[Rfam]
Listeria sRNA rli32: a 146-nucleotide RNA sequence from Listeria monocytogenes. The literature on the family includes a 2009 paper in Nature by Toledo-Arana et al., "The Listeria transcriptional landscape from saprophytism to virulence". The base pairs follow the family's consensus structure, which was predicted with RNAalifold. The source organism's lineage runs through Bacteria, Bacillota, Bacilli, Caryophanales and Listeria monocytogenes. By type it is a small RNA.

Nucleotides: 146
Stems, first nucleotide, its partner, number of pairs: 003104004008032006015025003034099014050068006069083003117141010
Number, partner (000 for none) and nucleotide at each position: 001000g002000u003104g004103g005102a006101g007000a008032g009031c010030u011029u012028u013027u014000a015025u016024u017023u018000u019000u020000c021000c022000c023017a024016a025015a026000a027013g028012a029011a030010a031009g032008c033000a034099g035098g036097u037096a038095a039094u040093g041092u042091u043090a044089g045088a046087g047086c048000a049000a050068u051067a052066a053065u054064u055063c056000a057000g058000u059000a060000u061000c062000c063055g064054a065053a066052u067051u068050a069083g070082u071081c072000u073000u074000a075000u076000c077000c078000c079000u080000u081071g082070g083069c084000u085000c086047g087046c088045u089044u090043u091042a092041a093040c094039a095038u096037u097036a098035u099034u100000a101006c102005u103004c104003c105000c106000u107000a108000a109000u110000a111000c112000u113000c114000c115000c116000u117141u118140a119139a120138c121137c122136g123135c124134a125133u126132c127000c128000c129000c130000c131000u132126g133125g134124u135123g136122c137121g138120g139119u140118u141117a142000u143000u144000u145000u146000u